[Rfam]
RNA sequence: CAAAUUCAUUUUGGAACUGAACUCUCGUGGGUCUGCAUGGCACAUACCACCAAAAACAAUUAAAUGUUCUUGUUGCGUAUACAUUUUGUAUUUGAAAAUUUGUAGCACCAUGAGAUUCAGCUCUGGCAUGAAUUUC
Numbered sequence: 001c002a003a004a005u006u007c008a009u010u011u012u013g014g015a016a017c018u019g020a021a022c023u024c025u026c027g028u029g030g031g032u033c034u035g036c037a038u039g040g041c042a043c044a045u046a047c048c049a050c051c052a053a054a055a056a057c058a059a060u061u062a063a064a065u066g067u068u069c070u071u072g073u074u075g076c077g078u079a080u081a082c083a084u085u086u087u088g089u090a091u092u093u094g095a096a097a098a099u100u101u102g103u104a105g106c107a108c109c110a111u112g113a114g115a116u117u118c119a120g121c122u123c124u125g126g127c128a129u130g131a132a133u134u135u136c
Stems, first nucleotide, its partner, number of pairs: 003134005009128001011126005017120003023115008033105005
Background: Shown here is a 136-nucleotide RNA from Lucilia cuprina, a member of the family "mir-998 microRNA precursor family". Gene Ontology terms of the family: miRNA-mediated post-transcriptional gene silencing and RISC complex.